Notes
This 116-nucleotide sequence from Lactuca saligna belongs to the Rfam family "U5 spliceosomal RNA". Lineage of the source: Eukaryota > Euphyllophyta > Spermatophyta > Lactucinae > Lactuca. The family's consensus secondary structure is taken from published work. From the family's description: U5 RNA is a component of both types of known spliceosome. The precise function of this molecule is unknown, though it is known that the 5' loop is required for splice site selection and p220 binding, and that both the 3' stem-loop and the Sm site are important for Sm protein binding and cap methylation. A search with the family's covariance model found it, with a score of 95 bits. It is annotated as a spliceosomal small nuclear RNA.

RNA sequence: AGCUACGCAGUGAACACAAAGCGAACUAUUCUUUCGCCUUUUACUAAAGAAUACCGUGUGUUCGCUGCAUUAAGUGGCAUACGCCUAUUUUUGGAGAGUUCCUUUCAUUAGGGCUC
Numbered sequence: 001a002g003c004u005a006c007g008c009a010g011u012g013a014a015c016a017c018a019a020a021g022c023g024a025a026c027u028a029u030u031c032u033u034u035c036g037c038c039u040u041u042u043a044c045u046a047a048a049g050a051a052u053a054c055c056g057u058g059u060g061u062u063c064g065c066u067g068c069a070u071u072a073a074g075u076g077g078c079a080u081a082c083g084c085c086u087a088u089u090u091u092u093g094g095a096g097a098g099u100u101c102c103u104u105u106c107a108u109u110a111g112g113g114c115u116c
Stems, first nucleotide, its partner, number of pairs: 003077004008067011027053008097115005